[Rfam]
RNA sequence: ACCUGUCGCGAGGCGCACGCAGGAGCGUCCGCGACGCAAGACACACACCGUGCUGCGGGAAGAACGUGGCACUUCAGGGCGUU
Numbered sequence: 001a002c003c004u005g006u007c008g009c010g011a012g013g014c015g016c017a018c019g020c021a022g023g024a025g026c027g028u029c030c031g032c033g034a035c036g037c038a039a040g041a042c043a044c045a046c047a048c049c050g051u052g053c054u055g056c057g058g059g060a061a062g063a064a065c066g067u068g069g070c071a072c073u074u075c076a077g078g079g080c081g082u083u
Stems, first nucleotide, its partner, number of pairs: 004036007013028004050072008
The record is an 83-nucleotide RNA from Streptomyces longispororuber, which matches "nrdJ RNA" in Rfam. NCBI's taxonomy places the organism under Bacteria, Bacillati, Actinomycetes, Kitasatosporales, Streptomyces. The match comes from Rfam's covariance-model search (75 bits).